[Rfam]
RNA: SAM riboswitch aptamer (S box leader)
Organism: Saccharopolyspora rectivirgula
RNA sequence: AAUCCAUCCCGAGCGGCCGAGAGACCUGGCUCUAUGACGCCGCAGCAACCACCUGGAACAGGCAGGUGCUAACGCCAGGAGCGAUGGAGU
Numbered sequence: 001a002a003u004c005c006a007u008c009c010c011g012a013g014c015g016g017c018c019g020a021g022a023g024a025c026c027u028g029g030c031u032c033u034a035u036g037a038c039g040c041c042g043c044a045g046c047a048a049c050c051a052c053c054u055g056g057a058a059c060a061g062g063c064a065g066g067u068g069c070u071a072a073c074g075c076c077a078g079g080a081g082c083g084a085u086g087g088a089g090u
Stems, first nucleotide, its partner, number of pairs: 001090001003088006013043005021032003026078004044070004049066002052062003074082001